[Rfam]
RNA: HIV gag stem loop 3 (GSL3)
RNA sequence: GGCCGGGGGGACGGAAAAGAUAUAGAUUAAAACAUUUAGUAUGGGCAAGCAGAGAGCUGGAAAGAUUCGCACUUAACCCUAGCC
Numbered sequence: 001g002g003c004c005g006g007g008g009g010g011a012c013g014g015a016a017a018a019g020a021u022a023u024a025g026a027u028u029a030a031a032a033c034a035u036u037u038a039g040u041a042u043g044g045g046c047a048a049g050c051a052g053a054g055a056g057c058u059g060g061a062a063a064g065a066u067u068c069g070c071a072c073u074u075a076a077c078c079c080u081a082g083c084c
Stems, first nucleotide, its partner, number of pairs: 001084003005080004